[Rfam]
Nucleotides: 073
Stems, first nucleotide, its partner, number of pairs: 001072007010025003027043005049065005
Number, partner (000 for none) and nucleotide at each position: 001072u002071g003070g004069g005068a006067a007066u008000u009000a010025g011024c012023c013000a014000a015000g016000u017000u018000g019000g020000u021000a022000a023012g024011g025010c026000a027043u028042a029041g030040c031039a032000c033000u034000u035000u036000g037000a038000c039031u040030g041029c042028u043027a044000g045000a046000u047000g048000c049065a050064a051063a052062g053061g054000u055000u056000c057000g058000a059000g060000u061053c062052c063051u064050u065049u066007a067006u068005u069004c070003c071002c072001a073000g
About this RNA: Shown here is a 73-nucleotide RNA sequence from Tequatrovirus T4, a member of the family "tRNA". The organism belongs to Tequatrovirus, within Viruses. Rfam describes the family as follows. Transfer RNA (tRNA) molecules are approximately 80 nucleotides in length. The family is grouped with related families in Rfam's "tRNA clan". Rfam classes the family as a transfer RNA.